[Rfam]
RNA sequence: GGCCCCUUCAUCUAGUGGUUAGGAUAUCGCCCUUUCACGGCGAGUACAGGGGUUCAAGUCCCCUAGGGGUCA
Numbered sequence: 001g002g003c004c005c006c007u008u009c010a011u012c013u014a015g016u017g018g019u020u021a022g023g024a025u026a027u028c029g030c031c032c033u034u035u036c037a038c039g040g041c042g043a044g045u046a047c048a049g050g051g052g053u054u055c056a057a058g059u060c061c062c063c064u065a066g067g068g069g070u071c072a
Stems, first nucleotide, its partner, number of pairs: 001071007010025004027043005048064005
RNA: tRNA
Organism: Helicobacter sp. 13S00401-1